[Rfam]
RNA sequence: UGCGAUGAGUUGACUCAAUCAGAUAACUUUUAGUUAUUUCGCUGCGGCGACUAGUGAUUGAACAAAGGCAGGGCAUAUGUACUUCGAGUACAACUACAAGAUGUAGAUGUUUGGACCCCUCUGUUUUGUGGAAUUC
Numbered sequence: 001u002g003c004g005a006u007g008a009g010u011u012g013a014c015u016c017a018a019u020c021a022g023a024u025a026a027c028u029u030u031u032a033g034u035u036a037u038u039u040c041g042c043u044g045c046g047g048c049g050a051c052u053a054g055u056g057a058u059u060g061a062a063c064a065a066a067g068g069c070a071g072g073g074c075a076u077a078u079g080u081a082c083u084u085c086g087a088g089u090a091c092a093a094c095u096a097c098a099a100g101a102u103g104u105a106g107a108u109g110u111u112u113g114g115a116c117c118c119c120u121c122u123g124u125u126u127u128g129u130g131g132a133a134u135u136c
Stems, first nucleotide, its partner, number of pairs: 017059005022038006039050004072111005094106004123136001126133002
RNA: Enterococcus sRNA 68 (Lacto-3 RNA)
Organism: Carnobacterium divergens